[Rfam]
RNA sequence: UCAUAUGAAACGCUGAAUCUUUGAGCGGGGGAACCAAUUGCUUAAUUUAAGCCGGGGUGAAUCACCAUGUGUGUAGGGUUAAUCCAUUCGACCCGAAUCCGUCAGCUAACCUCGUAAGCGUUGAAGGAGGAAAAA
Numbered sequence: 001u002c003a004u005a006u007g008a009a010a011c012g013c014u015g016a017a018u019c020u021u022u023g024a025g026c027g028g029g030g031g032a033a034c035c036a037a038u039u040g041c042u043u044a045a046u047u048u049a050a051g052c053c054g055g056g057g058u059g060a061a062u063c064a065c066c067a068u069g070u071g072u073g074u075a076g077g078g079u080u081a082a083u084c085c086a087u088u089c090g091a092c093c094c095g096a097a098u099c100c101g102u103c104a105g106c107u108a109a110c111c112u113c114g115u116a117a118g119c120g121u122u123g124a125a126g127g128a129g130g131a132a133a134a135a
Stems, first nucleotide, its partner, number of pairs: 011120004018024002025115006035054001055100003063073003076094004